[Rfam]
RNA sequence: UCAGUCGGCCGGACGGCCGCUCCCGCACCGGCCGAAAGGCUGCGGGGGAGGAAAGUCCGGGCUCCAUCGACAUACGGUGCCGGAUAACGUCCGGCGGGGGCGACCCCAGGGAAAGUGCCACAGAGACCGAACCGCCCCGCGAAGCCGCAAGGCGAAGCGGGGUAAGGGUGAAAAGGUGCGGUAAGAGCGCACCGCGUCUCCGGCAACGGAGACGGCAUGGUAAACCCCACCGGGAGCAAAACCGAAUAGGGACGGCAUCGCGGACAGUUCGCUCUCGGGCGAUAACUCCGCAGGGUGAUGUCAAACCCGCCGUCCGGGUAGGUUGCUCGAGGCGCUGUGCAAACAGCGUCCCAGAGGAAUGGCCGUCGCGUAUCGCUCCGCCUCACGGCGAGCGGUGCCCUCCAGAACCCGGCUUACAGGCCGACUGAUACU
Numbered sequence: 001u002c003a004g005u006c007g008g009c010c011g012g013a014c015g016g017c018c019g020c021u022c023c024c025g026c027a028c029c030g031g032c033c034g035a036a037a038g039g040c041u042g043c044g045g046g047g048g049a050g051g052a053a054a055g056u057c058c059g060g061g062c063u064c065c066a067u068c069g070a071c072a073u074a075c076g077g078u079g080c081c082g083g084a085u086a087a088c089g090u091c092c093g094g095c096g097g098g099g100g101c102g103a104c105c106c107c108a109g110g111g112a113a114a115g116u117g118c119c120a121c122a123g124a125g126a127c128c129g130a131a132c133c134g135c136c137c138c139g140c141g142a143a144g145c146c147g148c149a150a151g152g153c154g155a156a157g158c159g160g161g162g163u164a165a166g167g168g169u170g171a172a173a174a175g176g177u178g179c180g181g182u183a184a185g186a187g188c189g190c191a192c193c194g195c196g197u198c199u200c201c202g203g204c205a206a207c208g209g210a211g212a213c214g215g216c217a218u219g220g221u222a223a224a225c226c227c228c229a230c231c232g233g234g235a236g237c238a239a240a241a242c243c244g245a246a247u248a249g250g251g252a253c254g255g256c257a258u259c260g261c262g263g264a265c266a267g268u269u270c271g272c273u274c275u276c277g278g279g280c281g282a283u284a285a286c287u288c289c290g291c292a293g294g295g296u297g298a299u300g301u302c303a304a305a306c307c308c309g310c311c312g313u314c315c316g317g318g319u320a321g322g323u324u325g326c327u328c329g330a331g332g333c334g335c336u337g338u339g340c341a342a343a344c345a346g347c348g349u350c351c352c353a354g355a356g357g358a359a360u361g362g363c364c365g366u367c368g369c370g371u372a373u374c375g376c377u378c379c380g381c382c383u384c385a386c387g388g389c390g391a392g393c394g395g396u397g398c399c400c401u402c403c404a405g406a407a408c409c410c411g412g413c414u415u416a417c418a419g420g421c422c423g424a425c426u427g428a429u430a431c432u
Stems, first nucleotide, its partner, number of pairs: 001428010011417001012367007020048008053415003057412005062236004075232005080094005095109001096107004110227002115225002117221003132167002134163007175193006194216001195214008240324004250315006293308004331350008